Shown here is an 89-nucleotide RNA sequence from Gossypium mustelinum, a member of the family "MIR7486 microRNA precursor family". The family's consensus secondary structure was predicted with RNAalifold. Gene Ontology terms of the family: RISC complex and miRNA-mediated post-transcriptional gene silencing.

[Rfam]
RNA sequence: CACGUCAGCGCGAUUUGCUUACGUGGACACAAAUCUCGCCUACGAGGACGGGAUUUGCUGACACGUCCCCUGACAUCGCGCUGACGUGG
Numbered sequence: 001c002a003c004g005u006c007a008g009c010g011c012g013a014u015u016u017g018c019u020u021a022c023g024u025g026g027a028c029a030c031a032a033a034u035c036u037c038g039c040c041u042a043c044g045a046g047g048a049c050g051g052g053a054u055u056u057g058c059u060g061a062c063a064c065g066u067c068c069c070c071u072g073a074c075a076u077c078g079c080g081c082u083g084a085c086g087u088g089g
Stems, first nucleotide, its partner, number of pairs: 001088014016073001017070001021066001023064003030057009040047002
The source organism's lineage runs through Eukaryota, Magnoliopsida, eudicotyledons, malvids and Gossypium.